[Rfam]
Nucleotides: 068
Base pairs, nucleotide, nucleotide: 014030015029016028017027018026019025
Number, partner (000 for none) and nucleotide at each position: 001000u002000a003000u004000a005000u006000u007000u008000g009000c010000g011000c012000g013000u014030c015029u016028a017027u018026u019025a020000u021000a022000a023000a024000a025019u026018a027017g028016u029015a030014g031000a032000a033000a034000u035000a036000u037000a038000c039000a040000u041000a042000a043000u044000a045000a046000u047000c048000a049000u050000u051000u052000a053000a054000a055000a056000u057000a058000a059000u060000a061000u062000u063000g064000g065000a066000a067000u068000g